RNA sequence: GCUUUCAACAUCCCCGUCUCAGCGGCAGGAUCGGCGCACGCCGAACUAGCCGGUUGAGACUGAAGGC
Numbered sequence: 001g002c003u004u005u006c007a008a009c010a011u012c013c014c015c016g017u018c019u020c021a022g023c024g025g026c027a028g029g030a031u032c033g034g035c036g037c038a039c040g041c042c043g044a045a046c047u048a049g050c051c052g053g054u055u056g057a058g059a060c061u062g063a064a065g066g067c
Base pairs, nucleotide, nucleotide: 001067002066003065004064005063006062007061013053016060017059018058019057020056021055022054023052025050026049028047029046031044032043033042034041035040
nadA riboswitch: a 67-nucleotide RNA sequence from Granulicella arctica. NCBI's taxonomy places the organism under Bacteria, Pseudomonadati, Acidobacteriota, Terriglobales, Granulicella. On this family, see Huang et al., RNA 2020: "Structure and ligand binding of the ADP-binding domain of the NAD(+) riboswitch". By type it is a small RNA.